Overview
Shown here is a 203-nucleotide RNA sequence from Sylvietta virens, a member of the family "Small nucleolar RNA SNORA74". Pairs were carried over by alignment from the consensus structure, which was predicted with PFOLD. The family's RNA type in Rfam is H/ACA-box small nucleolar RNA. A reference for the family is Kiss et al. (1996), "Characterization of the intron-encoded U19 RNA, a new mammalian small nucleolar RNA that is not associated with fibrillarin", Mol Cell Biol. Rfam links the family to the GO terms RNA processing and nucleolus.
[Rfam]
RNA sequence: CCCAGCAGUAGUCAGCUGCCCAUGGCUGCUCAGUGCCUGUGCCAGUGUUAUGCUCCUGGGAGAGAAAGGUGCUGCUGAGCUCUCCUGGCACCAGUGGGGCCGUCCUGGCGCUCGGUGGUGCCAGGUUUUGGCAGCGCUCUGCAUGCCUGAGAGUGGAGUGACUCCUGCCUGUGGAGUUAGAGCCUAGACUGGAUGCAGACAAC
Numbered sequence: 001c002c003c004a005g006c007a008g009u010a011g012u013c014a015g016c017u018g019c020c021c022a023u024g025g026c027u028g029c030u031c032a033g034u035g036c037c038u039g040u041g042c043c044a045g046u047g048u049u050a051u052g053c054u055c056c057u058g059g060g061a062g063a064g065a066a067a068g069g070u071g072c073u074g075c076u077g078a079g080c081u082c083u084c085c086u087g088g089c090a091c092c093a094g095u096g097g098g099g100c101c102g103u104c105c106u107g108g109c110g111c112u113c114g115g116u117g118g119u120g121c122c123a124g125g126u127u128u129u130g131g132c133a134g135c136g137c138u139c140u141g142c143a144u145g146c147c148u149g150a151g152a153g154u155g156g157a158g159u160g161a162c163u164c165c166u167g168c169c170u171g172u173g174g175a176g177u178u179a180g181a182g183c184c185u186a187g188a189c190u191g192g193a194u195g196c197a198g199a200c201a202a203c
Base pairs, nucleotide, nucleotide: 001060002059003058004057005056007054008053009052011051012050015046016045017044018043020041021039022038024037025036026035069137070136071135072134073133074132075131076130077129084125085124086123087122088121089120090119091118092117094113096111099109100108101107139198140197141196142195143194144193146191155184156183159179160178161177162176163175164174165173